[Rfam]
The record is a 73-nucleotide sequence from Drosophila gunungcola, which matches "mir-310 microRNA precursor family" in Rfam. Gene Ontology terms of the family: RISC complex, cellular response to nitric oxide and dorsal closure.
RNA sequence: ACAUUUGCAGGCGGGGUGGUGCGUCAAUAUAUUAUUUUUUAUCUAUAUUGCACACUUCCCGGCCUAUAAAUGC
Numbered sequence: 001a002c003a004u005u006u007g008c009a010g011g012c013g014g015g016g017u018g019g020u021g022c023g024u025c026a027a028u029a030u031a032u033u034a035u036u037u038u039u040u041a042u043c044u045a046u047a048u049u050g051c052a053c054a055c056u057u058c059c060c061g062g063c064c065u066a067u068a069a070a071u072g073c
Stems, first nucleotide, its partner, number of pairs: 002072006010064002014060001016058001020054002023051001025050007

Pairs were carried over by alignment from the consensus structure, which was predicted with RNAalifold. It scores 73 bits against the family's covariance model.